[Rfam]
Shown here is an 80-nucleotide sequence, a member of the family "dinG RNA". It is one of the family's seed sequences. The family's consensus secondary structure is taken from published work.

RNA sequence: AAUGAGACUUCCGCGCCAGCGGCCUGCCGGGAGGCAGGAUAUGGUCGCGCAGGCUGAAAGCUAGGCCUGUGGUGCCAUAU
Numbered sequence: 001a002a003u004g005a006g007a008c009u010u011c012c013g014c015g016c017c018a019g020c021g022g023c024c025u026g027c028c029g030g031g032a033g034g035c036a037g038g039a040u041a042u043g044g045u046c047g048c049g050c051a052g053g054c055u056g057a058a059a060g061c062u063a064g065g066c067c068u069g070u071g072g073u074g075c076c077a078u079a080u
Stems, first nucleotide, its partner, number of pairs: 011022004023038006039080006047073002050069005